[Rfam]
RNA: Mammalian CPEB3 ribozyme
RNA sequence: UUUGGCAAAUUCAAGGCCAAAGCAGAAGCACUCAUGGUAUGGCCCUGUCAGAUGCCAACAAAUUUGCAAAUUCUGCU
Dot-bracket structure: ..............[[[[..((((((((.(.......).)]]]]....(((((........)))))....)))))))
Numbered sequence: 001u002u003u004g005g006c007a008a009a010u011u012c013a014a015g016g017c018c019a020a021a022g023c024a025g026a027a028g029c030a031c032u033c034a035u036g037g038u039a040u041g042g043c044c045c046u047g048u049c050a051g052a053u054g055c056c057a058a059c060a061a062a063u064u065u066g067c068a069a070a071u072u073c074u075g076c077u
Stems, first nucleotide, its partner, number of pairs: 015044004021077007028040001030038001049066005